[Rfam]
Shown here is a 75-nucleotide RNA sequence from Methylobacterium sp. 4-46, a member of the family "Makes More Granules Regulator RNA (mmgR)". Pairs were carried over by alignment from the consensus structure. Taxonomically the source falls in Methylobacterium (Bacteria, Pseudomonadota, Alphaproteobacteria, Methylobacteriaceae).
RNA sequence: CGGGUGUGCCCUCCUUGGGCGUUUCCUCCCUAGACUUCGGGCCGCUCGCGAGGGCGGCCUUUUUCUUUUCUGAGC
Numbered sequence: 001c002g003g004g005u006g007u008g009c010c011c012u013c014c015u016u017g018g019g020c021g022u023u024u025c026c027u028c029c030c031u032a033g034a035c036u037u038c039g040g041g042c043c044g045c046u047c048g049c050g051a052g053g054g055c056g057g058c059c060u061u062u063u064u065c066u067u068u069u070c071u072g073a074g075c
Base pairs, nucleotide, nucleotide: 008020009019010018011017039060040059041058042057043056044055045054046053047052